This 76-nucleotide sequence from Rhodobacteraceae bacterium 63075 belongs to the Rfam family "Singlet oxygen resistance RNA X". On this family, see Peng et al., RNA Biol 2016: "Regulation of a polyamine transporter by the conserved 3' UTR-derived sRNA SorX confers resistance to singlet oxygen and organic hydroperoxides in Rhodobacter sphaeroides". Gene Ontology term of the family: response to photooxidative stress. SorX (RSs2461)like SorY is a singlet oxygen induced sRNA that counteracts oxidative stress by targeting mRNA for a transporter in Rhodobacter. It also has an impact on resistance against organic hydroperoxides. It targets SD sequence of potA mRNA via an aSD sequence. Rfam classes the family as a small RNA. Rfam 15.1 lists 528 matches to the family in 356 species.

[Rfam]
RNA sequence: AAUCCGUGACAGCGAUGAUUAUCGCUUUCAUACCUCCCUGUUGGACUUUGGCCGAGCUUCGUGCUCGGCCUUUUUU
Numbered sequence: 001a002a003u004c005c006g007u008g009a010c011a012g013c014g015a016u017g018a019u020u021a022u023c024g025c026u027u028u029c030a031u032a033c034c035u036c037c038c039u040g041u042u043g044g045a046c047u048u049u050g051g052c053c054g055a056g057c058u059u060c061g062u063g064c065u066c067g068g069c070c071u072u073u074u075u076u
Stems, first nucleotide, its partner, number of pairs: 008029002011026004050070008